RNA sequence: GCGGGGGUACCGCCGAGUCCGCUGCGCCGACGGGGGGACGUCGUCGCACGGAGCCGGGGAACCAUCCGUCCUUGCCUGCUCAUUGGGCGGGAUGGUCCCUUCCGGGGUGAAUCGGCGCGAGGGCCGGUCCGCGAGGGCCGGUGACGCGUCGUAGGGCAGCUUCCGGUCCGAACCCGUCAGCUCACCCGGUAGGCGGCCGUAGGAAGAAGGA
Numbered sequence: 001g002c003g004g005g006g007g008u009a010c011c012g013c014c015g016a017g018u019c020c021g022c023u024g025c026g027c028c029g030a031c032g033g034g035g036g037g038a039c040g041u042c043g044u045c046g047c048a049c050g051g052a053g054c055c056g057g058g059g060a061a062c063c064a065u066c067c068g069u070c071c072u073u074g075c076c077u078g079c080u081c082a083u084u085g086g087g088c089g090g091g092a093u094g095g096u097c098c099c100u101u102c103c104g105g106g107g108u109g110a111a112u113c114g115g116c117g118c119g120a121g122g123g124c125c126g127g128u129c130c131g132c133g134a135g136g137g138c139c140g141g142u143g144a145c146g147c148g149u150c151g152u153a154g155g156g157c158a159g160c161u162u163c164c165g166g167u168c169c170g171a172a173c174c175c176g177u178c179a180g181c182u183c184a185c186c187c188g189g190u191a192g193g194c195g196g197c198c199g200u201a202g203g204a205a206g207a208a209g210g211a
Stems, first nucleotide, its partner, number of pairs: 011195004018052003053190006063104001105175003113151007154169004

A member of the RNA family "c-di-AMP riboswitch aptamer (ydaO/yuaA leader)" from Wenjunlia tyrosinilytica, 211 nucleotides long. Lineage of the source: Bacteria > Bacillati > Actinomycetota > Streptomycetaceae > Wenjunlia.